[Rfam]
RNA sequence: UUUACCUAAAACAAUGAAAGCCCUUCCUCUCUUCCAUCCUUACAGCUCCUUGGCUGUUCCAGUGGGAAUCAGGAUUUCAAGGUAUCU
Numbered sequence: 001u002u003u004a005c006c007u008a009a010a011a012c013a014a015u016g017a018a019a020g021c022c023c024u025u026c027c028u029c030u031c032u033u034c035c036a037u038c039c040u041u042a043c044a045g046c047u048c049c050u051u052g053g054c055u056g057u058u059c060c061a062g063u064g065g066g067a068a069u070c071a072g073g074a075u076u077u078c079a080a081g082g083u084a085u086c087u
Stems, first nucleotide, its partner, number of pairs: 035066001039062002042057006
BsrC: an 87-nucleotide RNA sequence from Bacillus mesophilum.
Rfam describes the family as follows. The 301 nucleotide sequence from Kouji Nakamura has been trimmed to a highly conserved ~85 nucleotide long core to form this family.
The literature on the family includes a 2008 paper in Gene by Saito et al., "Novel small RNA-encoding genes in the intergenic regions of Bacillus subtilis".
The source organism's lineage runs through Bacteria, Bacillati, Bacilli, Bacillaceae and Bacillus.